The family of this 64-nucleotide RNA sequence from Bombyx mori is "mir-2774 microRNA precursor family". On this family, see Liu et al., BMC Genomics 2010: "MicroRNAs of Bombyx mori identified by Solexa sequencing". The base pairs follow the family's consensus structure, which was predicted with RNAalifold. Gene Ontology terms of the family: RISC complex and miRNA-mediated post-transcriptional gene silencing.
[Rfam]
Nucleotides: 064
Stems, first nucleotide, its partner, number of pairs: 004061001006059001010055003017048001020046003024042001026040004
Number, partner (000 for none) and nucleotide at each position: 001000a002000c003000a004061a005000a006059a007000u008000u009000c010055g011054g012053a013000c014000c015000c016000a017048c018000g019000g020046u021045c022044u023000a024042c025000c026040g027039a028038g029037c030000a031000a032000a033000a034000c035000c036000c037029g038028c039027u040026c041000a042024g043000g044022g045021g046020a047000a048017g049000a050000u051000c052000u053012u054011c055010c056000c057000u058000u059006u060000g061004u062000c063000g064000u